[Rfam]
RNA sequence: CAUCGGCAGUUUUUGCCGAGUUCGGUCAAAGGCCCGUCCCCCGCCUCGCCGGACACUGCGGCAGCCGCAUCCCCCCUCUCCGGGCUGCCGCACGCAACAGGCCACCGUGGUUCCCCCCCUCCACCACGGUGGCCGUUU
Number, nucleotide and partner (000 for none) at each position: 001c000002a000003u000004c000005g000006g000007c000008a000009g000010u000011u000012u000013u000014u000015g000016c000017c000018g000019a000020g000021u053022u052023c051024g050025g049026u048027c000028a000029a000030a000031g045032g044033c043034c000035c000036g000037u000038c000039c000040c000041c000042c000043g033044c032045c031046u000047c000048g026049c025050c024051g023052g022053a021054c000055a000056c000057u092058g091059c090060g089061g088062c087063a086064g085065c084066c083067g000068c000069a000070u000071c000072c000073c000074c000075c000076c000077u000078c000079u000080c000081c000082g000083g066084g065085c064086u063087g062088c061089c060090g059091c058092a057093c000094g000095c000096a000097a000098c000099a000100g134101g000102c132103c131104a130105c129106c128107g127108u126109g125110g124111u123112u000113c000114c000115c000116c000117c000118c000119c000120u000121c000122c000123a111124c110125c109126a108127c107128g106129g105130u104131g103132g102133c000134c100135g000136u000137u000138u000
RNA: Alphaproteobacterial sRNA ar7
Organism: Nitratireductor sp. StC3